[Rfam]
About this RNA: The record is a 50-nucleotide RNA, which matches "Na+ riboswitch aptamer (DUF1646)" in Rfam.
Nucleotides: 050
Stems, first nucleotide, its partner, number of pairs: 003025003006020005032049006
Number, partner (000 for none) and nucleotide at each position: 001000g002000g003025u004024u005023g006020g007019a008018c009017g010016u011000u012000u013000u014000a015000u016010a017009c018008g019007u020006u021000u022000u023005c024004a025003a026000g027000a028000u029000u030000c031000u032049g033048c034047u035046u036045c037044u038000u039000g040000g041000g042000u043000g044037g045036g046035a047034a048033g049032c050000c

Pairs were carried over by alignment from the consensus structure, which is taken from published work. It is one of the family's seed sequences.